[Rfam]
RNA sequence: GGAUGGUCACCGCCUAAUCGGUGCACGGAUUCGAUCCGUUACCGAAUCGGGGACCCAGGUUAUCGGGGUGAAUCUGCUACGGCCGCAAGGCCGUAGCGGUAGGGCCGAGCUUCCCGGCCCGAACCCGUCAGCUAACCCGGUCGGCGGACGGGCAGGAAGAA
Numbered sequence: 001g002g003a004u005g006g007u008c009a010c011c012g013c014c015u016a017a018u019c020g021g022u023g024c025a026c027g028g029a030u031u032c033g034a035u036c037c038g039u040u041a042c043c044g045a046a047u048c049g050g051g052g053a054c055c056c057a058g059g060u061u062a063u064c065g066g067g068g069u070g071a072a073u074c075u076g077c078u079a080c081g082g083c084c085g086c087a088a089g090g091c092c093g094u095a096g097c098g099g100u101a102g103g104g105c106c107g108a109g110c111u112u113c114c115c116g117g118c119c120c121g122a123a124c125c126c127g128u129c130a131g132c133u134a135a136c137c138c139g140g141u142c143g144g145c146g147g148a149c150g151g152g153c154a155g156g157a158a159g160a161a
Stems, first nucleotide, its partner, number of pairs: 011146004018045006046141006056065001066126003074099009102120004
Rfam assigns this 161-nucleotide RNA from Nocardia stercoris to the family "c-di-AMP riboswitch aptamer (ydaO/yuaA leader)".
Rfam's curators write: This family represents a conserved RNA structure found upstream of the ydaO and yuaA genes in Bacillus subtilis and related genes in other bacteria. The ydaO/yuaA element is thought to act as a genetic 'off' switch for the ydaO and yuaA genes in its native state.
The organism belongs to Nocardia, within Bacteria.